[Rfam]
RNA: Mammalian CPEB3 ribozyme
RNA sequence: AGUUCAAUUUCAAGAGCUAUAGCAGAAGUGUUCAUAUUGCAACUCUUGUCAGCUUUCUAUGAAUCGGUGAAUUCUGUU
Numbered sequence: 001a002g003u004u005c006a007a008u009u010u011c012a013a014g015a016g017c018u019a020u021a022g023c024a025g026a027a028g029u030g031u032u033c034a035u036a037u038u039g040c041a042a043c044u045c046u047u048g049u050c051a052g053c054u055u056u057c058u059a060u061g062a063a064u065c066g067g068u069g070a071a072u073u074c075u076g077u078u
Stems, first nucleotide, its partner, number of pairs: 013046004018041001021078007028040003050067001052065001054063003